[Rfam]
RNA sequence: UAGCGAGGUCAGGGUUCGGAUCCCCUCCCCGAGCCCAGGGUAACGCUGAAGGUGGAGGGGAA
Numbered sequence: 001u002a003g004c005g006a007g008g009u010c011a012g013g014g015u016u017c018g019g020a021u022c023c024c025c026u027c028c029c030c031g032a033g034c035c036c037a038g039g040g041u042a043a044c045g046c047u048g049a050a051g052g053u054g055g056a057g058g059g060g061a062a
Stems, first nucleotide, its partner, number of pairs: 008041003012036004016031001018029002022060006
Record summary
This 62-nucleotide sequence from Carlito syrichta belongs to the Rfam family "Gag/pol translational readthrough site". A search with the family's covariance model found it, with a score of 70 bits. The source organism's lineage runs through Eukaryota, Teleostomi, Euarchontoglires, Tarsiiformes and Carlito. Pairs were carried over by alignment from the consensus structure, which is taken from published work. A reference for the family is ten Dam et al. (1990), "RNA pseudoknots: translational frameshifting and readthrough on viral RNAs", Virus Genes. Rfam links the family to the GO term viral translational readthrough.